[Rfam]
RNA sequence: GGUUGCAAGUUUGAAGCCACAGCAGGAGUGCUCAUGGCACUGCCCUGUCAUAUUCUAAUAAAUCUGUGAAUUCUGCU
Numbered sequence: 001g002g003u004u005g006c007a008a009g010u011u012u013g014a015a016g017c018c019a020c021a022g023c024a025g026g027a028g029u030g031c032u033c034a035u036g037g038c039a040c041u042g043c044c045c046u047g048u049c050a051u052a053u054u055c056u057a058a059u060a061a062a063u064c065u066g067u068g069a070a071u072u073c074u075g076c077u
Base pairs, nucleotide, nucleotide: 013045016043017042021077022076023075024074025073026072027071028040029039030038049066050065052063053062054061
RNA: Mammalian CPEB3 ribozyme